[Rfam]
RNA sequence: GCUGGUGCAAUGAUUAUAUAACAUUCCUCGUACUGAAGGGAGAUCCCUCUGAACGACACCUAUACACCCAUAGAAUCUGAGCACG
Numbered sequence: 001g002c003u004g005g006u007g008c009a010a011u012g013a014u015u016a017u018a019u020a021a022c023a024u025u026c027c028u029c030g031u032a033c034u035g036a037a038g039g040g041a042g043a044u045c046c047c048u049c050u051g052a053a054c055g056a057c058a059c060c061u062a063u064a065c066a067c068c069c070a071u072a073g074a075a076u077c078u079g080a081g082c083a084c085g
Stems, first nucleotide, its partner, number of pairs: 003085002006083002
Dot-bracket structure: ..((.((..........................................................................))))
RNA: Small nucleolar RNA snoR8a